[Rfam]
RNA: ZMP/ZTP riboswitch aptamer (pfl RNA motif)
RNA sequence: CGCCUCCUGCGCGACUGGCGAUGAGGGGCGGCACGACUGCCGGCCCCGAGGUGGAUCGACCACCGGGAAGCGCAGGCCGGCCACCCGGCCGGCGUCCGCCGUUCGCCUGGGCAGCCCUC
Numbered sequence: 001c002g003c004c005u006c007c008u009g010c011g012c013g014a015c016u017g018g019c020g021a022u023g024a025g026g027g028g029c030g031g032c033a034c035g036a037c038u039g040c041c042g043g044c045c046c047c048g049a050g051g052u053g054g055a056u057c058g059a060c061c062a063c064c065g066g067g068a069a070g071c072g073c074a075g076g077c078c079g080g081c082c083a084c085c086c087g088g089c090c091g092g093c094g095u096c097c098g099c100c101g102u103u104c105g106c107c108u109g110g111g112c113a114g115c116c117c118u119c
Stems, first nucleotide, its partner, number of pairs: 003079001006076007015067002017107005051063004096114001098112003